[Rfam]
RNA: mir-9229 microRNA precursor family
RNA sequence: GAAACACCCUUAUGGGGCAAGACUUGCUUCAGUGGGGCUUUGGUGCUGACUAAGUCUUCCCCCUGAGUGUGUCCCU
Numbered sequence: 001g002a003a004a005c006a007c008c009c010u011u012a013u014g015g016g017g018c019a020a021g022a023c024u025u026g027c028u029u030c031a032g033u034g035g036g037g038c039u040u041u042g043g044u045g046c047u048g049a050c051u052a053a054g055u056c057u058u059c060c061c062c063c064u065g066a067g068u069g070u071g072u073c074c075c076u
Base pairs, nucleotide, nucleotide: 001075004072005071006070007069009067010066011065012064014062015061016060017059019057021056022055023054029053031051032050033049035047036046037044038043